[Rfam]
Nucleotides: 145
Base pairs, nucleotide, nucleotide: 005144006143007142009138010137014132015131016130017129019127020126021125022124023123024122025121027119028118029117031116032115033114035112036111038109039108040107041106042105043104044103046099047098048097049096050095051094054091056089059085061083062082063081064080065078068075069074
Number, partner (000 for none) and nucleotide at each position: 001000c002000a003000c004000a005144u006143u007142u008000c009138u010137g011000u012000a013000u014132g015131c016130a017129a018000c019127u020126g021125u022124g023123u024122u025121c026000c027119u028118c029117u030000a031116u032115u033114u034000g035112a036111c037000g038109c039108u040107a041106a042105a043104g044103g045000a046099g047098g048097a049096u050095g051094c052000u053000c054091c055000a056089g057000u058000u059085g060000a061083a062082a063081c064080a065078c066000u067000u068075c069074a070000u071000a072000a073000g074069u075068g076000u077000c078065g079000u080064u081063g082062u083061u084000a085059c086000c087000u088000u089056u090000g091054g092000u093000a094051g095050u096049a097048u098047u099046c100000u101000u102000c103044c104043c105042u106041u107040u108039a109038g110000a111036g112035u113000a114033a115032a116031g117029a118028g119027a120000u121025g122024a123023a124022c125021a126020c127019a128000c129017u130016u131015g132014c133000c134000c135000a136000a137010c138009a139000a140000c141000a142007a143006g144005a145000c
Notes
MIR6234 microRNA precursor family: a 145-nucleotide RNA from Miscanthus lutarioriparius. Gene Ontology terms of the family: RISC complex and miRNA-mediated post-transcriptional gene silencing. A search with the family's covariance model found it, with a score of 102 bits. Pairs were carried over by alignment from the consensus structure, which was predicted with RNAalifold. The family has 2 seed sequences and 141 matches in Rfam 15.1.